About this RNA: The family of this 88-nucleotide RNA sequence from Bombyx mori is "mir-2807 microRNA precursor family". A reference for the family is Liu et al. (2010), "MicroRNAs of Bombyx mori identified by Solexa sequencing", BMC Genomics. The family's consensus secondary structure was predicted with RNAalifold. Taxonomically the source falls in Bombyx (Eukaryota, Metazoa, Endopterygota, Ditrysia). The family has 8 seed sequences and 5,120 matches in Rfam 15.1. Its family is annotated with miRNA-mediated post-transcriptional gene silencing and RISC complex in the Gene Ontology.
RNA sequence: UUAACUCAACAUUGUAUGGAGUUGUUGCGUUUGCCUACGUUUGCCGCUAGGGGCGCUGUUCCAACUGUAGGUAUACAAAUUUGAGUUA
Numbered sequence: 001u002u003a004a005c006u007c008a009a010c011a012u013u014g015u016a017u018g019g020a021g022u023u024g025u026u027g028c029g030u031u032u033g034c035c036u037a038c039g040u041u042u043g044c045c046g047c048u049a050g051g052g053g054c055g056c057u058g059u060u061c062c063a064a065c066u067g068u069a070g071g072u073a074u075a076c077a078a079a080u081u082u083g084a085g086u087u088a
Stems, first nucleotide, its partner, number of pairs: 008082002012078005018072001020066005027059003034052003039047002